[Rfam]
RNA: mir-34 microRNA precursor family
Organism: Trichoplusia ni
RNA sequence: ACCGCGUUGGCAGUGUGGUUAGCUGGUUGUUUAUUAUAUGACAACAGCCACUAACGACACUGCUUCUGCGUA
Numbered sequence: 001a002c003c004g005c006g007u008u009g010g011c012a013g014u015g016u017g018g019u020u021a022g023c024u025g026g027u028u029g030u031u032u033a034u035u036a037u038a039u040g041a042c043a044a045c046a047g048c049c050a051c052u053a054a055c056g057a058c059a060c061u062g063c064u065u066c067u068g069c070g071u072a
Stems, first nucleotide, its partner, number of pairs: 003070004009064002012061005018055005024050008